[Rfam]
RNA sequence: UAUUGUUUGUGGGGGGACCUAUUUGGUUGAGAAGGUAAAACCUGACCCUUUGAACUUGACGUAGUUAACACUACCGUAGGGAAGCAAAUCAUUUAAAGUA
Numbered sequence: 001u002a003u004u005g006u007u008u009g010u011g012g013g014g015g016g017a018c019c020u021a022u023u024u025g026g027u028u029g030a031g032a033a034g035g036u037a038a039a040a041c042c043u044g045a046c047c048c049u050u051u052g053a054a055c056u057u058g059a060c061g062u063a064g065u066u067a068a069c070a071c072u073a074c075c076g077u078a079g080g081g082a083a084g085c086a087a088a089u090c091a092u093u094u095a096a097a098g099u100a
Base pairs, nucleotide, nucleotide: 006088007087008086009085010084011049012048013047014046016043017027018026019025034042035041036040055080056079057078058077061074062073063072064071